Overview
The record is a 269-nucleotide sequence from Sparrow coronavirus HKU17, which matches "Deltacoronavirus 5'UTR" in Rfam. About the family: The 5'UTR of deltacoronaviruses is similar to the 5'UTRs of alpha- and betacoronaviruses, as they also contain three helices denoted as SL1, SL2 and SL4. SL1 and SL2 have major impacts of the level of viral replication, whereas SL4 is hypothesized to play a role as a 'spacer' during the template-switch of CoV sgRNA synthesis. The family is grouped with related families in Rfam's "Coronavirus 5' UTR".

RNA sequence: GGUAAAAAUUUAUAUUAUAUAAUUUUUAUCUCCCUAGCUUCGCUAGUUCGCUACCGACACCAAUCCAGGUGCGUUGCUUCAAGUUGGCUACCCAUCCCAGGGGCGCUGUUGCGCUUGCUCACCAUUAGAUUACCUGGAAACCAGCCACUCAGGUUGGAGUUUCCCCAGGCUCUUUUGCGUGGGCAUUGGCCGCUUGUGGCUUUUGCACAAAAUUUCAGCUACUUUCAGUUCCUCUGGCCGUUUACCUCCUCUAUAGACAGCACUGACCA
Numbered sequence: 001g002g003u004a005a006a007a008a009u010u011u012a013u014a015u016u017a018u019a020u021a022a023u024u025u026u027u028a029u030c031u032c033c034c035u036a037g038c039u040u041c042g043c044u045a046g047u048u049c050g051c052u053a054c055c056g057a058c059a060c061c062a063a064u065c066c067a068g069g070u071g072c073g074u075u076g077c078u079u080c081a082a083g084u085u086g087g088c089u090a091c092c093c094a095u096c097c098c099a100g101g102g103g104c105g106c107u108g109u110u111g112c113g114c115u116u117g118c119u120c121a122c123c124a125u126u127a128g129a130u131u132a133c134c135u136g137g138a139a140a141c142c143a144g145c146c147a148c149u150c151a152g153g154u155u156g157g158a159g160u161u162u163c164c165c166c167a168g169g170c171u172c173u174u175u176u177g178c179g180u181g182g183g184c185a186u187u188g189g190c191c192g193c194u195u196g197u198g199g200c201u202u203u204u205g206c207a208c209a210a211a212a213u214u215u216c217a218g219c220u221a222c223u224u225u226c227a228g229u230u231c232c233u234c235u236g237g238c239c240g241u242u243u244a245c246c247u248c249c250u251c252u253a254u255a256g257a258c259a260g261c262a263c264u265g266a267c268c269a
Stems, first nucleotide, its partner, number of pairs: 001031002005027004010022005034046005055073002058071004116185006127173003141157006